[Rfam]
RNA sequence: CGCGGGAGUCGGGCGGACGGUGCCGUCGCCAACCCGGUCAGGUCCGGAAGGAAGCAGCCGCAACGAUUUCGUGUCGGGUCGUUCCGGCUCCCACCUCA
Numbered sequence: 001c002g003c004g005g006g007a008g009u010c011g012g013g014c015g016g017a018c019g020g021u022g023c024c025g026u027c028g029c030c031a032a033c034c035c036g037g038u039c040a041g042g043u044c045c046g047g048a049a050g051g052a053a054g055c056a057g058c059c060g061c062a063a064c065g066a067u068u069u070c071g072u073g074u075c076g077g078g079u080c081g082u083u084c085c086g087g088c089u090c091c092c093a094c095c096u097c098a
Stems, first nucleotide, its partner, number of pairs: 004092005011084005018076006025067004035060004043052003
Record summary: The family of this 98-nucleotide RNA sequence from Sphingomonas sp. Root710 is "Bacterial small signal recognition particle RNA". It is annotated as a non-coding RNA gene. About the family: The signal recognition particle (SRP) is a universally conserved ribonucleoprotein involved in the co-translational targeting of proteins to membranes. Clan: SRP clan. It scores 59 bits against the family's covariance model. The family's consensus secondary structure is taken from published work.